RNA sequence: UUCCACAGGUACUGGCCUGAAACUGUUCAGUGCUGUAGCAGUUGCAGUAUUCCAACUGUGGGAAAACAGCUGUUAUGCUUGCAGAAUGCUCCUUUCCCAAGCGGGAGAAGAGAGUUUCAGUGUAACGAACAAUA
Numbered sequence: 001u002u003c004c005a006c007a008g009g010u011a012c013u014g015g016c017c018u019g020a021a022a023c024u025g026u027u028c029a030g031u032g033c034u035g036u037a038g039c040a041g042u043u044g045c046a047g048u049a050u051u052c053c054a055a056c057u058g059u060g061g062g063a064a065a066a067c068a069g070c071u072g073u074u075a076u077g078c079u080u081g082c083a084g085a086a087u088g089c090u091c092c093u094u095u096c097c098c099a100a101g102c103g104g105g106a107g108a109a110g111a112g113a114g115u116u117u118c119a120g121u122g123u124a125a126c127g128a129a130c131a132a133u134a
Stems, first nucleotide, its partner, number of pairs: 003061004017047003021043005075123005089114003092110004097105001
A member of the RNA family "Small nucleolar RNA SNORA41" from Pseudonaja textilis, 134 nucleotides long. Lineage of the source: Eukaryota > Craniata > Tetrapoda > Lepidosauria > Pseudonaja. On this family, see Huttenhofer et al., EMBO J 2001: "RNomics: an experimental approach that identifies 201 candidates for novel, small, non-messenger RNAs in mouse". ACA41 is a member of the H/ACA class of snoRNA that guide the sites of modification of uridines to pseudouridines. Gene Ontology terms of the family: RNA processing and nucleolus. It scores 90 bits against the family's covariance model. Rfam 15.1 lists 676 matches to the family in 522 species. Pairs were carried over by alignment from the consensus structure, which was predicted with PFOLD.